[Rfam]
RNA sequence: CGUGGAGACUGCAAAUAUGCGUGGUCUCCGACAUUCAUUACUCAGGCAUAUUGCUUACUGGAGAGAAAGAUGGCACUUACCGCCGAAAAGAAAGCUGAGAUCGUCAAUGAAUACGGUCGUGGUGAU
Numbered sequence: 001c002g003u004g005g006a007g008a009c010u011g012c013a014a015a016u017a018u019g020c021g022u023g024g025u026c027u028c029c030g031a032c033a034u035u036c037a038u039u040a041c042u043c044a045g046g047c048a049u050a051u052u053g054c055u056u057a058c059u060g061g062a063g064a065g066a067a068a069g070a071u072g073g074c075a076c077u078u079a080c081c082g083c084c085g086a087a088a089a090g091a092a093a094g095c096u097g098a099g100a101u102c103g104u105c106a107a108u109g110a111a112u113a114c115g116g117u118c119g120u121g122g123u124g125a126u
Base pairs, nucleotide, nucleotide: 007026008025009024010023011022012021049079050078060077061076063074
RNA: Ribosomal S15 leader